[Rfam]
Nucleotides: 091
Base pairs, nucleotide, nucleotide: 002090003089005087006086008085009084010083011082012081013080014079015078016077017076018075019074020073021072022071023070024069026067027066032053033052034051055062
Number, partner (000 for none) and nucleotide at each position: 001000u002090u003089g004000u005087g006086g007000u008085g009084a010083g011082g012081u013080a014079g015078u016077a017076a018075g019074u020073u021072g022071u023070g024069u025000u026067g027066u028000u029000g030000u031000u032053g033052g034051g035000g036000a037000u038000c039000a040000g041000u042000a043000u044000a045000g046000u047000g048000u049000g050000g051034c052033c053032c054000u055062u056000g057000a058000a059000g060000g061000a062055g063000a064000u065000a066027a067026c068000u069024a070023u071022a072021c073020a074019a075018u076017u077016u078015a079014c080013u081012g082011c083010c084009u085008u086006c087005c088000u089003c090002g091000c